Rfam assigns this 96-nucleotide RNA from Motilibacter rhizosphaerae to the family "TPP riboswitch aptamer (THI element)".
[Rfam]
RNA sequence: GUACGUCGGCCGGGGUGCCCCGCGAGGGGCUGAGAGCCAUACCCGCCGCACCUGAUCCGGAUCAUGCCGGCGCAGGGAGACCGACGGAGGGGAGAU
Number, nucleotide and partner (000 for none) at each position: 001g000002u000003a000004c000005g000006u084007c083008g082009g081010c000011c045012g044013g043014g042015g000016u039017g030018c029019c028020c027021c026022g000023c000024g000025a000026g021027g020028g019029g018030c017031u000032g000033a000034g000035a000036g000037c000038c000039a016040u000041a000042c014043c013044c012045g011046c000047c000048g000049c000050a000051c076052c075053u074054g073055a000056u000057c070058c069059g068060g067061a000062u000063c000064a000065u000066g000067c060068c059069g058070g057071c000072g000073c054074a053075g052076g051077g000078a000079g000080a000081c009082c008083g007084a006085c000086g000087g000088a000089g000090g000091g000092g000093a000094g000095a000096u000
Overview: It scores 64 bits against the family's covariance model.